[Rfam]
RNA sequence: UUUGUUUACUGUGAGGAUACAAAGCUCCCUCUUCUGAAAUUAUUUGAGGAUGCUUGCCGGCAGAAUCGAACCAAUACUAAUCGCCACCACUGAGUGA
Numbered sequence: 001u002u003u004g005u006u007u008a009c010u011g012u013g014a015g016g017a018u019a020c021a022a023a024g025c026u027c028c029c030u031c032u033u034c035u036g037a038a039a040u041u042a043u044u045u046g047a048g049g050a051u052g053c054u055u056g057c058c059g060g061c062a063g064a065a066u067c068g069a070a071c072c073a074a075u076a077c078u079a080a081u082c083g084c085c086a087c088c089a090c091u092g093a094g095u096g097a
Stems, first nucleotide, its partner, number of pairs: 006097004

A member of the RNA family "Small nucleolar RNA R30/Z108" from Salvia splendens, 97 nucleotides long. The family's consensus secondary structure was predicted with PFOLD. Rfam describes the family as follows. snoR30 is a C/D box small nucleolar RNA which acts as a methylation guide for 18S ribosomal RNA in plants. Clan: SNORD100 clan. The literature on the family includes a 2002 paper in Curr Biol by Marker et al., "Experimental RNomics. Identification of 140 Candidates for Small Non-Messenger RNAs in the Plant Arabidopsis thaliana". The organism belongs to core Calosphace, within Eukaryota.